Annotation
Shown here is a 545-nucleotide part of an RNA from Candidatus Korarchaeum cryptofilum, a member of the family "Archaeal large subunit ribosomal RNA". It is one of the family's seed sequences. NCBI's taxonomy places the organism under Archaea, Thermoproteati, Candidatus Korarchaeales, Candidatus Korarchaeaceae, Candidatus Korarchaeum cryptofilum. Its family is annotated with structural constituent of ribosome and ribosome in the Gene Ontology.

RNA sequence: CUGCUACGCCGCCUGGUGGAUGGCUCGGCUCGGGCGCCGAGGAAGGGGGUGGCAAGCUGCCAUAAGCCCCGGGGAGCCGCAGGCAGGCUUCGAUCCGGGGAUCCCCGAAUGGCGAUGCCGCCGAGAGGCGCUCCCGGCAGGGAGCGGGAACCCCCCGAAUUGAAGCAUCUCAGUAGGGGGAGGAGGAGAAACCAACCGGGAUGCCCUGAGUACCGGCGAGGGAAAGGGGCUGAGCUCAAACCGAACUCCCGCUCGCGAGAGCGGGUGGAUGUGGGGUUGCGGGGGGAUCGGGAGCCGCUGGGAGGGAAGCCGAAGUGGCCUGGAACGGCCCGCCAUAGAGGGUGAGAGCCCCGUAGGCGUAACCUACCAGCGGUCCGGUCCUCUCCCGAGUACCGUGGGUUGGAAUACCCGCGGGAAUCCGGGGGUCAUCGACCUCCAAAGCUAAAUACGUCCCGAGACCGAUAGCGAACUGAGUACCGUGAGGGAAAGCUGAAAAGCACCGCUGGCGCGGGGUGAAAAGAGCCUGAAACCAGGCGGUCAUAGGA
Numbered sequence: 001c002u003g004c005u006a007c008g009c010c011g012c013c014u015g016g017u018g019g020a021u022g023g024c025u026c027g028g029c030u031c032g033g034g035c036g037c038c039g040a041g042g043a044a045g046g047g048g049g050u051g052g053c054a055a056g057c058u059g060c061c062a063u064a065a066g067c068c069c070c071g072g073g074g075a076g077c078c079g080c081a082g083g084c085a086g087g088c089u090u091c092g093a094u095c096c097g098g099g100g101a102u103c104c105c106c107g108a109a110u111g112g113c114g115a116u117g118c119c120g121c122c123g124a125g126a127g128g129c130g131c132u133c134c135c136g137g138c139a140g141g142g143a144g145c146g147g148g149a150a151c152c153c154c155c156c157g158a159a160u161u162g163a164a165g166c167a168u169c170u171c172a173g174u175a176g177g178g179g180g181a182g183g184a185g186g187a188g189a190a191a192c193c194a195a196c197c198g199g200g201a202u203g204c205c206c207u208g209a210g211u212a213c214c215g216g217c218g219a220g221g222g223a224a225a226g227g228g229g230c231u232g233a234g235c236u237c238a239a240a241c242c243g244a245a246c247u248c249c250c251g252c253u254c255g256c257g258a259g260a261g262c263g264g265g266u267g268g269a270u271g272u273g274g275g276g277u278u279g280c281g282g283g284g285g286g287a288u289c290g291g292g293a294g295c296c297g298c299u300g301g302g303a304g305g306g307a308a309g310c311c312g313a314a315g316u317g318g319c320c321u322g323g324a325a326c327g328g329c330c331c332g333c334c335a336u337a338g339a340g341g342g343u344g345a346g347a348g349c350c351c352c353g354u355a356g357g358c359g360u361a362a363c364c365u366a367c368c369a370g371c372g373g374u375c376c377g378g379u380c381c382u383c384u385c386c387c388g389a390g391u392a393c394c395g396u397g398g399g400u401u402g403g404a405a406u407a408c409c410c411g412c413g414g415g416a417a418u419c420c421g422g423g424g425g426u427c428a429u430c431g432a433c434c435u436c437c438a439a440a441g442c443u444a445a446a447u448a449c450g451u452c453c454c455g456a457g458a459c460c461g462a463u464a465g466c467g468a469a470c471u472g473a474g475u476a477c478c479g480u481g482a483g484g485g486a487a488a489g490c491u492g493a494a495a496a497g498c499a500c501c502g503c504u505g506g507c508g509c510g511g512g513g514u515g516a517a518a519a520g521a522g523c524c525u526g527a528a529a530c531c532a533g534g535c536g537g538u539c540a541u542a543g544g545a
Stems, first nucleotide, its partner, number of pairs: 008538009022524001023490002027460002029457006035450002045106003048061003067100006076088003111119003131144005151182001152180005162169002192199002203230005213221002233443004241274003251262004285381004295373004309358003315331001317330004334338001340352003393414007421437005477484002